About this RNA:
Shown here is a 75-nucleotide RNA from Haemonchus placei, a member of the family "mir-5928 microRNA precursor family". Taxonomically the source falls in Haemonchus (Eukaryota, Rhabditida, Rhabditina, Rhabditomorpha). The base pairs follow the family's consensus structure, which was predicted with RNAalifold.
RNA sequence: GGCACAAACUUGAAGUAGGGUAGUUCAGAAGGGUCAGCUGAUCCUACUGAUCUACCCUACUUCAAAUUUGUGCCC
Numbered sequence: 001g002g003c004a005c006a007a008a009c010u011u012g013a014a015g016u017a018g019g020g021u022a023g024u025u026c027a028g029a030a031g032g033g034u035c036a037g038c039u040g041a042u043c044c045u046a047c048u049g050a051u052c053u054a055c056c057c058u059a060c061u062u063c064a065a066a067u068u069u070g071u072g073c074c075c
Stems, first nucleotide, its partner, number of pairs: 001074008011064013025050004030045001032043004